[Rfam]
RNA sequence: GAGCCGUGUGGUGAGUACAAAGCGAACUAUUCUUUUGCCUUUUACUAAAGAAUACCGUGUGCUCGCCACUUAUGCGGUAUACAUUAAUUUUUGGAGGGGUUAACCUAAACCCCU
Numbered sequence: 001g002a003g004c005c006g007u008g009u010g011g012u013g014a015g016u017a018c019a020a021a022g023c024g025a026a027c028u029a030u031u032c033u034u035u036u037g038c039c040u041u042u043u044a045c046u047a048a049a050g051a052a053u054a055c056c057g058u059g060u061g062c063u064c065g066c067c068a069c070u071u072a073u074g075c076g077g078u079a080u081a082c083a084u085u086a087a088u089u090u091u092u093g094g095a096g097g098g099g100u101u102a103a104c105c106u107a108a109a110c111c112c113c114u
Stems, first nucleotide, its partner, number of pairs: 003078004009068011028054008095114007
RNA: U5 spliceosomal RNA
Organism: Castanea mollissima